[Rfam]
RNA sequence: CAUGAAGAAAACUGACUUGGUCAGUGUGGUUCAGAGAAGUCAGCUUGAUUACAUGCUUAUUCCAUG
Number, nucleotide and partner (000 for none) at each position: 001c066002a065003u064004g063005a000006a061007g060008a000009a058010a057011a000012c055013u000014g049015a000016c047017u000018u000019g045020g044021u043022c000023a000024g040025u039026g032027u000028g000029g000030u000031u000032c026033a000034g000035a000036g000037a000038a000039g025040u024041c000042a000043g021044c020045u019046u000047g016048a000049u014050u000051a000052c000053a000054u000055g012056c000057u010058u009059a000060u007061u006062c000063c004064a003065u002066g001
Rfam assigns this 66-nucleotide RNA sequence from Carlito syrichta to the family "MAT2A 3'UTR stem loop F". The literature on the family includes a 2011 paper in Genome Res by Parker et al., "New families of human regulatory RNA structures identified by comparative analysis of vertebrate genomes". The family has 26 seed sequences and 403 matches in Rfam 15.1. Lineage of the source: Eukaryota > Chordata > Euteleostomi > Eutheria > Carlito. By type it is a cis-regulatory element. A search with the family's covariance model found it, with a score of 54 bits.